[Rfam]
RNA sequence: GUGGCCCCACACGACUGGCGCGGGUGGAUGACCACCGGGGAGUGACACGUGCGGCAUCGCCCGCCUGGGUGCCGAGA
Numbered sequence: 001g002u003g004g005c006c007c008c009a010c011a012c013g014a015c016u017g018g019c020g021c022g023g024g025u026g027g028a029u030g031a032c033c034a035c036c037g038g039g040g041a042g043u044g045a046c047a048c049g050u051g052c053g054g055c056a057u058c059g060c061c062c063g064c065c066u067g068g069g070u071g072c073c074g075a076g077a
Stems, first nucleotide, its partner, number of pairs: 003046001010044003015039002017065004024035004054072005
RNA: ZMP/ZTP riboswitch aptamer (pfl RNA motif)